[Rfam]
RNA sequence: GGGGCUGAUCGGUUUCGACGGUGGUCGUGAUUCCAGGAGAAGCGGGCCGAGGAGGCAGGCUCAUCUCGUGAACGAUGCCUGCAAACCUAUAGGUGCCGAUAACAAGCGCACCGACUUCGCCCUCGCCGCCUGAGCGAGUCUCGAAGUCCGUGAGCCCGGGAUUGCUCUCGACCCGGUAGCUCACGUCAUCUAGAGAGCCACUGCUCGCAGCCUUCGUCGUCGGGGCUGCGGGGACUCUCAGACGACUGAGCCCGUCCACACCUUGUCUGCGUGAGUGUGGGGGCUGAGAAAAGCACAGCAGACUGCGCCCGGAGAAGUCCUGGAACAGCGUCACCGGACCCGGGUUCGAUUCCCGGCAGCUCCACAC
Number, nucleotide and partner (000 for none) at each position: 001g363002g362003g361004g360005c359006u358007g357008a000009u000010c000011g000012g000013u000014u000015u000016c000017g000018a000019c336020g335021g334022u333023g332024g331025u330026c000027g000028u327029g000030a000031u325032u324033c323034c322035a321036g320037g319038a318039g000040a000041a000042g000043c311044g310045g309046g308047c307048c068049g067050a066051g065052g064053a000054g000055g082056c081057a080058g079059g078060c077061u000062c000063a000064u052065c051066u050067c049068g048069u000070g000071a000072a000073c000074g000075a000076u000077g060078c059079c058080u057081g056082c055083a000084a000085a000086c000087c000088u000089a000090u000091a000092g000093g000094u000095g000096c000097c000098g000099a000100u000101a000102a000103c000104a000105a000106g000107c000108g000109c000110a000111c000112c000113g000114a000115c000116u000117u000118c000119g000120c000121c146122c000123u144124c143125g142126c000127c000128g139129c138130c000131u000132g000133a000134g000135c000136g000137a000138g129139u128140c000141u000142c125143g124144a123145a000146g121147u000148c000149c185150g184151u183152g182153a181154g180155c000156c176157c175158g174159g173160g172161a000162u170163u000164g198165c197166u196167c195168u194169c193170g162171a000172c160173c159174c158175g157176g156177u000178a000179g000180c154181u153182c152183a151184c150185g149186u000187c000188a000189u000190c000191u000192a000193g169194a168195g167196a166197g165198c164199c000200a000201c000202u000203g000204c232205u231206c230207g229208c228209a227210g226211c225212c224213u000214u000215c000216g247217u000218c000219g000220u000221c000222g000223g000224g212225g211226c210227u209228g208229c207230g206231g205232g204233g000234a000235c000236u000237c000238u000239c000240a000241g000242a000243c000244g000245a000246c000247u216248g000249a285250g284251c283252c282253c281254g000255u000256c280257c279258a278259c000260a276261c275262c000263u000264u000265g303266u302267c301268u300269g000270c000271g000272u000273g000274a000275g261276u260277g000278u258279g257280g256281g253282g252283g251284c250285u249286g000287a000288g000289a000290a000291a000292a000293g000294c000295a000296c000297a000298g000299c000300a268301g267302a266303c265304u000305g000306c000307g047308c046309c045310c044311g043312g000313a000314g000315a000316a000317g000318u038319c037320c036321u035322g034323g033324a032325a031326c000327a028328g000329c000330g025331u024332c023333a022334c021335c020336g019337g000338a000339c000340c356341c355342g354343g353344g352345u000346u000347c000348g000349a000350u000351u000352c344353c343354c342355g341356g340357c007358a006359g005360c004361u003362c002363c001364a000365c000366a000367c000

Shown here is a 367-nucleotide RNA sequence from Isoptericola sp. CG 20/1183, a member of the family "transfer-messenger RNA". Rfam describes the family as follows. Bacterial tmRNA, also known as 10Sa RNA or SsrA, is named for its dual tRNA and mRNA-like properties. Its role is to liberate the mRNA from a stalled ribosome. To accomplish this part of the tmRNA is used as a reading frame that ends in a translation stop signal. The broken mRNA is replaced in the ribosome by the tmRNA and translation of the tmRNA leads to addition of a proteolysis tag to the incomplete protein enabling recognition by a protease. Recently a number of permuted tmRNA genes have been found encoded in two parts. tmRNAs have been identified in eubacteria and some chloroplasts but are absent from archaeal and eukaryote nuclear genomes. Pairs were carried over by alignment from the consensus structure, which is taken from published work. Its Rfam clan is "tRNA clan".